[Rfam]
RNA sequence: AAAAGGAGCUUCUGUAGUGAGUGGCACACGUAGAGCAUCUUGAUUGCUCCAUGUGCUGAAUAGAUAUCAAGAGAUUUUGGAAGCAUAAUUAUUUGGUACUUGGGUAGCUGGUAAUUAUUGGUCCUGGUGCCCAU
Numbered sequence: 001a002a003a004a005g006g007a008g009c010u011u012c013u014g015u016a017g018u019g020a021g022u023g024g025c026a027c028a029c030g031u032a033g034a035g036c037a038u039c040u041u042g043a044u045u046g047c048u049c050c051a052u053g054u055g056c057u058g059a060a061u062a063g064a065u066a067u068c069a070a071g072a073g074a075u076u077u078u079g080g081a082a083g084c085a086u087a088a089u090u091a092u093u094u095g096g097u098a099c100u101u102g103g104g105u106a107g108c109u110g111g112u113a114a115u116u117a118u119u120g121g122u123c124c125u126g127g128u129g130c131c132c133a134u
Stems, first nucleotide, its partner, number of pairs: 008084005013026003017022001027055005033049005056079001058077004102132004107128005114122003

Record summary
This 134-nucleotide RNA sequence from Molossus molossus belongs to the Rfam family "U11 spliceosomal RNA". The family is grouped with related families in Rfam's "U1 clan". It is annotated as a spliceosomal small nuclear RNA. The base pairs follow the family's consensus structure, which is taken from published work.